[Rfam]
RNA sequence: AUCGCUUCUCGGCCUUUUGGCUAAGAUCAAAGUGUAGUAUCUGUUCUUAUCAGCUUAAUAUCUGAUACGGUCCUCAUUGAGGGCCCAGAAUAUUAAACUGAUUUUUGGAACCAGAUGGGGUGCUCGGAGCUUGCUCCACCCCUGUCACGGGUUGGCCUGGUAUUGCAGUACUUCCAGGAUCGGCCCUCUCCUU
Numbered sequence: 001a002u003c004g005c006u007u008c009u010c011g012g013c014c015u016u017u018u019g020g021c022u023a024a025g026a027u028c029a030a031a032g033u034g035u036a037g038u039a040u041c042u043g044u045u046c047u048u049a050u051c052a053g054c055u056u057a058a059u060a061u062c063u064g065a066u067a068c069g070g071u072c073c074u075c076a077u078u079g080a081g082g083g084c085c086c087a088g089a090a091u092a093u094u095a096a097a098c099u100g101a102u103u104u105u106u107g108g109a110a111c112c113a114g115a116u117g118g119g120g121u122g123c124u125c126g127g128a129g130c131u132u133g134c135u136c137c138a139c140c141c142c143u144g145u146c147a148c149g150g151g152u153u154g155g156c157c158u159g160g161u162a163u164u165g166c167a168g169u170a171c172u173u174c175c176a177g178g179a180u181c182g183g184c185c186c187u188c189u190c191c192u193u
Stems, first nucleotide, its partner, number of pairs: 007026003011022004048067006069085007114146007126137004149186006156178005
Source information
The record is a 193-nucleotide sequence from Strigamia maritima, which matches "U2 spliceosomal RNA" in Rfam. NCBI's taxonomy places the organism under Eukaryota, Ecdysozoa, Mandibulata, Pleurostigmophora, Strigamia. The family's consensus secondary structure is taken from published work. The family is grouped with related families in Rfam's "U2 clan". By type it is a spliceosomal small nuclear RNA.